[Rfam]
RNA sequence: UAGCUUGAGGGAAGAACAGGUCCCUCAAAUUGAAGAUUUCUCAUCCAUCCGUCACUUUACCAGCAUUUUUUUUUUGGUAUUUUGCUAGUCAUACAGGAUGGAAUAUAA
Numbered sequence: 001u002a003g004c005u006u007g008a009g010g011g012a013a014g015a016a017c018a019g020g021u022c023c024c025u026c027a028a029a030u031u032g033a034a035g036a037u038u039u040c041u042c043a044u045c046c047a048u049c050c051g052u053c054a055c056u057u058u059a060c061c062a063g064c065a066u067u068u069u070u071u072u073u074u075u076g077g078u079a080u081u082u083u084g085c086u087a088g089u090c091a092u093a094c095a096g097g098a099u100g101g102a103a104u105a106u107a108a
Stems, first nucleotide, its partner, number of pairs: 044102006059089002062086004